[Rfam]
RNA sequence: GAGAUUAGCUAGGGGAGCCGGUUACGGCUGAGAGGACACUGUCUGACCCUUUGAACCUGAUCUGGGUAACACCAGCGGAGGGAAGCAUUCGACCGUCAUC
Numbered sequence: 001g002a003g004a005u006u007a008g009c010u011a012g013g014g015g016a017g018c019c020g021g022u023u024a025c026g027g028c029u030g031a032g033a034g035g036a037c038a039c040u041g042u043c044u045g046a047c048c049c050u051u052u053g054a055a056c057c058u059g060a061u062c063u064g065g066g067u068a069a070c071a072c073c074a075g076c077g078g079a080g081g082g083a084a085g086c087a088u089u090c091g092a093c094c095g096u097c098a099u100c
Stems, first nucleotide, its partner, number of pairs: 008086003011050004016044001017028004035043003056081003062075004
Dot-bracket structure: .......(((((((.(((((....))))......(((...))))..)))).....(((...((((......))))...)))..)))..............
A member of the RNA family "TPP riboswitch aptamer (THI element)" from Pontibacillus halophilus, 100 nucleotides long. Rfam's curators write: Vitamin B(1) in its active form thiamin pyrophosphate (TPP) is an essential coenzyme that is synthesised by coupling of pyrimidine and thiazole moieties in bacteria. The previously detected thiamin-regulatory element, thi box was extended, resulting in a new, highly conserved RNA secondary structure, the THI element, which is widely distributed in eubacteria and also occurs in some archaea. Analysis of operon structures identified a large number of new candidate thiamin-regulated genes, mostly transporters, in various prokaryotic organisms. The THI element is a riboswitch that directly binds to TPP to regulate gene expression through a variety of mechanisms in archaea, bacteria and eukaryotes. through a variety of mechanisms in archaea, bacteria and eukaryotes. Tandem TPP riboswitches have been reported where both TPP riboswitches respond independently to TPP. The structure of TPP riboswitch has been reported for Escherichia coli and Arabidopsis thaliana. The match comes from Rfam's covariance-model search (72 bits).